Shown here is a 78-nucleotide RNA from Ferrimonas aestuarii, a member of the family "RpsF leader".

RNA sequence: GCCAAAACCCUUUUUGUUCCUUGCCUCCAGGUAUGGCUGAGCCUGAUAGAGGCUGAAUAACCGUAAGGAUCAAUAAUG
Numbered sequence: 001g002c003c004a005a006a007a008c009c010c011u012u013u014u015u016g017u018u019c020c021u022u023g024c025c026u027c028c029a030g031g032u033a034u035g036g037c038u039g040a041g042c043c044u045g046a047u048a049g050a051g052g053c054u055g056a057a058u059a060a061c062c063g064u065a066a067g068g069a070u071c072a073a074u075a076a077u078g
Base pairs, nucleotide, nucleotide: 016071018069019068020067021066022065023053024052025051026050027049030043031042032041

Rfam classes the family as a cis-regulatory leader. From the family's description: Conserved and widely distributed to many bacterial species RNA structure. It precedes operon containing rpsF, which encodes ribosomal protein S6. The motif also precedes operon containing rpsR, which encodes ribosomal protein S18. The RNA was shown to interact with S6:S18 protein dimer in vitro.